[Rfam]
RNA: Mu-gpT-DE RNA
Nucleotides: 053
Base pairs, nucleotide, nucleotide: 002042003041004040005039007025008024009023010022011021
Number, partner (000 for none) and nucleotide at each position: 001000c002042c003041c004040u005039g006000a007025c008024a009023g010022u011021c012000g013000c014000a015000u016000u017000g018000g019000g020000c021011g022010a023009c024008u025007g026000a027000c028000a029000c030000u031000a032000g033000c034000c035000a036000a037000g038000a039005c040004a041003g042002g043000a044000g045000a046000u047000u048000c049000g050000c051000a052000u053000g